[Rfam]
This 291-nucleotide sequence from Niallia nealsonii belongs to the Rfam family "T-box leader".
RNA sequence: UGUAAAACGUAGAAGAGGAAAAGUAAAAAAAGGAAGCAUACUAGAGAGAAUCACCACUGGCUGAAAGUGAUUUAUGCCGCUCCUUUUUUGAAGUGCCCCUCUGAGUCCGAUAUCGAACAGCUCUUUUUUUCGAAAGGGAGAUGCAAAGGGAAAAAGUCGUUAAUAGUUGACUGCUUCCAUGUGCUUUUUAGUAGAUUAGGCGGAACCUAUCCGUUAACAAGGAAGAGUGGAGAUUAUUUAGCAAUUAAUAAUCUAAACAGAGUGGAACCGCGCGUUAAAAGCGUCUCUGUC
Number, nucleotide and partner (000 for none) at each position: 001u000002g000003u000004a000005a000006a000007a106008c105009g000010u000011a000012g000013a000014a000015g101016a100017g099018g098019a000020a000021a000022a000023g000024u000025a000026a089027a088028a087029a086030a085031a084032g000033g000034a000035a000036g000037c076038a075039u074040a000041c000042u000043a000044g000045a000046g000047a000048g000049a072050a071051u070052c069053a068054c067055c000056a000057c000058u000059g000060g000061c000062u000063g000064a000065a000066a000067g054068u053069g052070a051071u050072u049073u000074a039075u038076g037077c000078c000079g000080c000081u000082c000083c000084u031085u030086u029087u028088u027089u026090g000091a000092a000093g000094u000095g000096c000097c000098c018099c017100u016101c015102u000103g000104a000105g008106u007107c000108c199109g000110a000111u000112a196113u195114c194115g000116a000117a000118c000119a000120g000121c000122u000123c000124u000125u000126u000127u000128u000129u000130u000131c000132g000133a000134a000135a000136g000137g000138g000139a000140g000141a000142u000143g000144c000145a000146a000147a000148g000149g000150g000151a000152a000153a000154a000155a000156g000157u000158c000159g000160u000161u000162a000163a000164u000165a000166g000167u000168u000169g000170a000171c000172u000173g000174c000175u000176u000177c000178c000179a000180u000181g000182u000183g000184c000185u000186u000187u000188u000189u000190a000191g000192u000193a000194g114195a113196u112197u000198a000199g108200g000201c213202g212203g211204a000205a000206c000207c000208u000209a000210u000211c203212c202213g201214u000215u000216a000217a000218c000219a000220a000221g000222g000223a000224a000225g000226a000227g000228u000229g000230g000231a254232g253233a252234u251235u250236a249237u248238u000239u000240a000241g000242c000243a000244a000245u000246u000247a000248a237249u236250a235251a234252u233253c232254u231255a000256a000257a000258c000259a288260g287261a286262g285263u000264g000265g000266a000267a000268c000269c000270g284271c283272g282273c281274g000275u000276u000277a000278a000279a000280a000281g273282c272283g271284u270285c262286u261287c260288u259289g000290u000291c000
NCBI's taxonomy places the organism under Bacteria, Bacillota, Caryophanales, Bacillaceae, Niallia. For this family Rfam cites "tRNA determinants for transcription antitermination of the Bacillus subtilis tyrS gene" (Grundy et al., RNA, 2000).